Rfam assigns this 150-nucleotide RNA sequence from Drosophila busckii to the family "Small nucleolar RNA psi18S-841/snoR66". Rfam's curators write: psi18S-841 is a member of the H/ACA class of snoRNA. This family is responsible for guiding the modification of uridine 841 in Drosophila 18S rRNA to pseudouridine. It is annotated as an H/ACA-box small nucleolar RNA. Taxonomically the source falls in Dorsilopha (Eukaryota, Eumetazoa, Brachycera, Acalyptratae). Rfam links the family to the GO terms nucleolus and RNA processing.
RNA sequence: UGCAAGCGCACUCUGUGUUACAUUGAAUCGAAAGAUAAUCACAUGUGAUGACAAUUUGUUAACUUGCUAAAUUAAAUGUAAGCUGCGACUUAUCCAUGUGCUCAAGUCUUAAACCCCAACUGAACACAUUGAAUACGCGCUUUACAUUUG
Number, nucleotide and partner (000 for none) at each position: 001u000002g067003c066004a065005a064006g063007c000008g000009c000010a059011c058012u000013c000014u053015g052016u051017g049018u048019u047020a046021c045022a044023u043024u000025g042026a000027a000028u000029c000030g000031a000032a000033a000034g000035a000036u000037a000038a000039u000040c000041a000042c025043a023044u022045g021046u020047g019048a018049u017050g000051a016052c015053a014054a000055u000056u000057u000058g011059u010060u000061a000062a000063c006064u005065u004066g003067c002068u000069a000070a000071a000072u000073u000074a148075a147076a000077u000078g143079u000080a141081a000082g140083c139084u000085g000086c137087g136088a000089c000090u000091u000092a000093u132094c131095c000096a129097u128098g127099u126100g125101c000102u123103c122104a000105a000106g120107u119108c000109u000110u000111a000112a000113a000114c000115c000116c000117c000118a000119a107120c106121u000122g103123a102124a000125c100126a099127c098128a097129u096130u000131g094132a093133a000134u000135a000136c087137g086138c000139g083140c082141u080142u000143u078144a000145c000146a000147u075148u074149u000150g000